RNA sequence: UGCUAUGAUGUUGUAAUUUGCGUCCUAUCCGGUCUUCAGGGGCAGUAGCCUGCUGUCCACUCGCUGUUGCCGUUGAGCUGACGACUUUCUGAAACUGAGCA
Numbered sequence: 001u002g003c004u005a006u007g008a009u010g011u012u013g014u015a016a017u018u019u020g021c022g023u024c025c026u027a028u029c030c031g032g033u034c035u036u037c038a039g040g041g042g043c044a045g046u047a048g049c050c051u052g053c054u055g056u057c058c059a060c061u062c063g064c065u066g067u068u069g070c071c072g073u074u075g076a077g078c079u080g081a082c083g084a085c086u087u088u089c090u091g092a093a094a095c096u097g098a099g100c101a
Stems, first nucleotide, its partner, number of pairs: 001101003021083004030072004039064001041057005

This 101-nucleotide RNA sequence from Podarcis muralis belongs to the Rfam family "Small nucleolar RNA SNORD16".
It scores 69 bits against the family's covariance model.
Clan: SNORD16 clan.
Rfam 15.1 lists 1,321 matches to the family in 655 species.
Taxonomically the source falls in Podarcis (Eukaryota, Bilateria, Gnathostomata, Bifurcata).
Its family is annotated with nucleolus and RNA processing in the Gene Ontology.